[Rfam]
Annotation
The family of this 82-nucleotide RNA sequence from Ferrimonas lipolytica is "c-di-GMP-I riboswitch aptamer". GEMM was predicted in a large-scale screen for bacterial structured RNA regulatory elements. Genes associated with GEMM are involved in a diverse array of functions, including chemotaxis regulation, signal transduction, secretion and chitin. Rfam 15.1 lists 5,092 matches to the family in 1,772 species. Its family is annotated with cyclic-di-GMP binding in the Gene Ontology. The source organism's lineage runs through Bacteria, Pseudomonadati, Alteromonadales, Ferrimonadaceae and Ferrimonas.
RNA sequence: UAGCUCUAACGGCAAACCGGUUGUGAGGCUGGGACGCAAAAUGACAGCGCAACAUGGAAUUGUUAUGGGCUGCAUUACUGGG
Numbered sequence: 001u002a003g004c005u006c007u008a009a010c011g012g013c014a015a016a017c018c019g020g021u022u023g024u025g026a027g028g029c030u031g032g033g034a035c036g037c038a039a040a041a042u043g044a045c046a047g048c049g050c051a052a053c054a055u056g057g058a059a060u061u062g063u064u065a066u067g068g069g070c071u072g073c074a075u076u077a078c079u080g081g082g
Base pairs, nucleotide, nucleotide: 012037013036017032018031019030020029021028022027040076041075042074043073045072046071047070050067052063053062054061